[Rfam]
RNA sequence: ACCGUUUCGCGUGACUGGCGAGAAAGUGGGCCACCACGAGGGAGCGCGAAACUUCUUCAUGCCGCUCGCCUGGGCUGCGUCG
Numbered sequence: 001a002c003c004g005u006u007u008c009g010c011g012u013g014a015c016u017g018g019c020g021a022g023a024a025a026g027u028g029g030g031c032c033a034c035c036a037c038g039a040g041g042g043a044g045c046g047c048g049a050a051a052c053u054u055c056u057u058c059a060u061g062c063c064g065c066u067c068g069c070c071u072g073g074g075c076u077g078c079g080u081c082g
Base pairs, nucleotide, nucleotide: 004052005051006050007049008048009047010046011045012044015041016040017070018069019068020067021066026037027036028035029034061075062074063073

Source information
ZMP/ZTP riboswitch aptamer (pfl RNA motif): an 82-nucleotide RNA sequence from Desulfolutivibrio sulfodismutans. Rfam links the family to the GO terms one-carbon metabolic process and regulation of purine nucleotide biosynthetic process.